[Rfam]
RNA sequence: ACCUUAUCGAGAGUCGGGGGAGGAAUCUGGUCCCAAGAUCCCGCAGCAACCGUUACGGAUGUAACAAGGUGCUCAUUCCAGCAGGCGCAUGCUUGAAAGAUGAGGG
Numbered sequence: 001a002c003c004u005u006a007u008c009g010a011g012a013g014u015c016g017g018g019g020g021a022g023g024a025a026u027c028u029g030g031u032c033c034c035a036a037g038a039u040c041c042c043g044c045a046g047c048a049a050c051c052g053u054u055a056c057g058g059a060u061g062u063a064a065c066a067a068g069g070u071g072c073u074c075a076u077u078c079c080a081g082c083a084g085g086c087g088c089a090u091g092c093u094u095g096a097a098a099g100a101u102g103a104g105g106g
Stems, first nucleotide, its partner, number of pairs: 002105007013044001015043004022033003027081004045073004050069002052065004077098001082095005